[Rfam]
RNA: PreQ1 (pre queuosine) riboswitch aptamer
RNA sequence: ACCCACGUGGUUCGAAACCAUCCCACGAUAAAAAACUAAGGAGCU
Numbered sequence: 001a002c003c004c005a006c007g008u009g010g011u012u013c014g015a016a017a018c019c020a021u022c023c024c025a026c027g028a029u030a031a032a033a034a035a036c037u038a039a040g041g042a043g044c045u
Stems, first nucleotide, its partner, number of pairs: 006027005016037001